[Rfam]
RNA sequence: UUGCAAAUGAUGAAAAUGUUAAUUGGACUGAAUACAUUGAUGAACUCAAAGGAACCACUGAUGCAC
Numbered sequence: 001u002u003g004c005a006a007a008u009g010a011u012g013a014a015a016a017u018g019u020u021a022a023u024u025g026g027a028c029u030g031a032a033u034a035c036a037u038u039g040a041u042g043a044a045c046u047c048a049a050a051g052g053a054a055c056c057a058c059u060g061a062u063g064c065a066c
Stems, first nucleotide, its partner, number of pairs: 002065004